[Rfam]
RNA: mir-252 microRNA precursor family
Organism: Biomphalaria glabrata
RNA sequence: ACCCAUUUCUAAGUACUGGUGCCGCGGGACUGUGUUACACUAAACUCCAGUGGUCCCGGUACUUAUCAGAGGGU
Numbered sequence: 001a002c003c004c005a006u007u008u009c010u011a012a013g014u015a016c017u018g019g020u021g022c023c024g025c026g027g028g029a030c031u032g033u034g035u036u037a038c039a040c041u042a043a044a045c046u047c048c049a050g051u052g053g054u055c056c057c058g059g060u061a062c063u064u065a066u067c068a069g070a071g072g073g074u
Stems, first nucleotide, its partner, number of pairs: 001074004006069002010065010024051002027048003